[Rfam]
RNA sequence: AUAUCUUCGAGAUAUGUUUGAUAUUCUUGGUUGUGGUGAUGAUAUCAACCGAGAAUCAGACAUAUACUCGAAUCUAU
Numbered sequence: 001a002u003a004u005c006u007u008c009g010a011g012a013u014a015u016g017u018u019u020g021a022u023a024u025u026c027u028u029g030g031u032u033g034u035g036g037u038g039a040u041g042a043u044a045u046c047a048a049c050c051g052a053g054a055a056u057c058a059g060a061c062a063u064a065u066a067c068u069c070g071a072a073u074c075u076a077u
Stems, first nucleotide, its partner, number of pairs: 006072004012065011024053002029050005
RNA: mir-190 microRNA precursor family
Organism: Medioppia subpectinata